RNA: MIR394 microRNA precursor family
Organism: Miscanthus lutarioriparius
Nucleotides: 111
Stems, first nucleotide, its partner, number of pairs: 013101001016097006025088011
Number, partner (000 for none) and nucleotide at each position: 001000c002000u003000u004000a005000c006000u007000g008000a009000g010000a011000g012000u013101u014000c015000c016097u017096u018095g019094g020093c021092a022000u023000u024000c025088u026087g027086u028085c029084c030083a031082c032081c033080u034079c035078c036000u037000u038000g039000c040000c041000g042000a043000u044000c045000u046000u047000g048000c049000a050000g051000a052000a053000a054000g055000u056000u057000u058000a059000u060000c061000a062000a063000u064000u065000c066000u067000g068000u069000u070000u071000g072000u073000u074000u075000u076000u077000u078035g079034g080033a081032g082031g083030u084029g085028g086027g087026c088025a089000u090000a091000c092021u093020g094019c095018c096017a097016a098000u099000g100000g101013a102000g103000c104000u105000g106000u107000g108000u109000a110000g111000g